The family of this 79-nucleotide sequence from Firmicutes bacterium CAG:227 is "ZMP/ZTP riboswitch aptamer (pfl RNA motif)". Pairs were carried over by alignment from the consensus structure, which is taken from published work. The match comes from Rfam's covariance-model search (60 bits).
[Rfam]
Nucleotides: 079
Stems, first nucleotide, its partner, number of pairs: 003052001005050008015040002017067005024037004056074001058072003
Number, partner (000 for none) and nucleotide at each position: 001000a002000a003052u004000u005050g006049c007048u008047u009046a010045u011044a012043u013000g014000a015040c016039u017067g018066a019065c020064g021063g022000a023000a024037g025036u026035g027034g028000a029000a030000u031000c032000a033000a034027c035026c036025a037024c038000a039016g040015g041000g042000a043012g044011u045010a046009u047008a048007a049006g050005c051000c052003g053000u054000u055000g056074a057000a058072g059071c060070c061000g062000a063021c064020c065019g066018u067017c068000u069000g070060g071059g072058c073000a074056u075000u076000g077000g078000a079000u